[Rfam]
RNA sequence: UCGAGCGGAAGCUUGCGUUUAGGGGCAAACACACAGACUGGGUCUUUUGGCUCAAGUCAAUACAGCACCCUUGGGAAGGUCUGAGAAAAGCCAAUAUCGGUUCUUGCGGGGCCGCUCCUGCGAGGGAGGGUGAGCUACCAGCAAACUUGGCGCCGGAGUGCGUCCUUGUUGGCCGGCGUCCUUAACAUUGAAGCCGCGUGGCUGAGUGGGCGCCGUGCUCAGUUGGAACGUGGUUUACGGGCGGUUUAGCGCUAUGAAGUGCAAUACGCGAGAUGCUCGGCCCUUGUGGGCUGGGUACACCUCAAUUCAGACUAUUCUUCGUUCGA
Numbered sequence: 001u002c003g004a005g006c007g008g009a010a011g012c013u014u015g016c017g018u019u020u021a022g023g024g025g026c027a028a029a030c031a032c033a034c035a036g037a038c039u040g041g042g043u044c045u046u047u048u049g050g051c052u053c054a055a056g057u058c059a060a061u062a063c064a065g066c067a068c069c070c071u072u073g074g075g076a077a078g079g080u081c082u083g084a085g086a087a088a089a090g091c092c093a094a095u096a097u098c099g100g101u102u103c104u105u106g107c108g109g110g111g112c113c114g115c116u117c118c119u120g121c122g123a124g125g126g127a128g129g130g131u132g133a134g135c136u137a138c139c140a141g142c143a144a145a146c147u148u149g150g151c152g153c154c155g156g157a158g159u160g161c162g163u164c165c166u167u168g169u170u171g172g173c174c175g176g177c178g179u180c181c182u183u184a185a186c187a188u189u190g191a192a193g194c195c196g197c198g199u200g201g202c203u204g205a206g207u208g209g210g211c212g213c214c215g216u217g218c219u220c221a222g223u224u225g226g227a228a229c230g231u232g233g234u235u236u237a238c239g240g241g242c243g244g245u246u247u248a249g250c251g252c253u254a255u256g257a258a259g260u261g262c263a264a265u266a267c268g269c270g271a272g273a274u275g276c277u278c279g280g281c282c283c284u285u286g287u288g289g290g291c292u293g294g295g296u297a298c299a300c301c302u303c304a305a306u307u308c309a310g311a312c313u314a315u316u317c318u319u320c321g322u323u324c325g326a
Stems, first nucleotide, its partner, number of pairs: 001326004007320003012272007021072005036058003039054005081310005089246004099113005115128005130238007147222003274297009
This 326-nucleotide sequence belongs to the Rfam family "Nuclear RNase P".
Rfam's curators write: Ribonuclease P (RNase P) is a ubiquitous endoribonuclease, found in archaea, bacteria and eukarya as well as chloroplasts and mitochondria. Its best characterised activity is the generation of mature 5'-ends of tRNAs by cleaving the 5'-leader elements of precursor-tRNAs. Cellular RNase Ps are ribonucleoproteins. RNA from bacterial RNase Ps retains its catalytic activity in the absence of the protein subunit, i.e. it is a ribozyme. Isolated eukaryotic and archaeal RNase P RNA has not been shown to retain its catalytic function, but is still essential for the catalytic activity of the holoenzyme. Although the archaeal and eukaryotic holoenzyme s have a much greater protein content than the bacterial ones, the RNA cores from all the three lineages are homologous -- helices corresponding to P1, P2, P3, P4, and P10/11 are common to all cellular RNase P RNAs. Yet, there is considerable sequence variation, particularly among the eukaryotic RNAs.